[Rfam]
RNA sequence: AUGUCAGUGAUUGAGUAUUGACACAGGAAGGUUUUAUUUUUUAAUAACCUUUACCAACUUGGGCUAUUUGGGAGAAUAAAAAAGACCACACUCUACAGAAGGCUGUAUCACUAAGCAAAUAGCUCACUACUAUUUGUGGCCUACAUU
Numbered sequence: 001a002u003g004u005c006a007g008u009g010a011u012u013g014a015g016u017a018u019u020g021a022c023a024c025a026g027g028a029a030g031g032u033u034u035u036a037u038u039u040u041u042u043a044a045u046a047a048c049c050u051u052u053a054c055c056a057a058c059u060u061g062g063g064c065u066a067u068u069u070g071g072g073a074g075a076a077u078a079a080a081a082a083a084g085a086c087c088a089c090a091c092u093c094u095a096c097a098g099a100a101g102g103c104u105g106u107a108u109c110a111c112u113a114a115g116c117a118a119a120u121a122g123c124u125c126a127c128u129a130c131u132a133u134u135u136g137u138g139g140c141c142u143a144c145a146u147u
Stems, first nucleotide, its partner, number of pairs: 004071004012066001014065003018061001026055002029052001030049004083142002086139005097128002101124006108117001

Rfam assigns this 147-nucleotide RNA sequence from Myotis lucifugus to the family "Small nucleolar RNA SNORA4". By type it is an H/ACA-box small nucleolar RNA. It scores 87 bits against the family's covariance model. ACA4 is a member of the H/ACA class of snoRNA that guide the sites of modification of uridines to pseudouridines.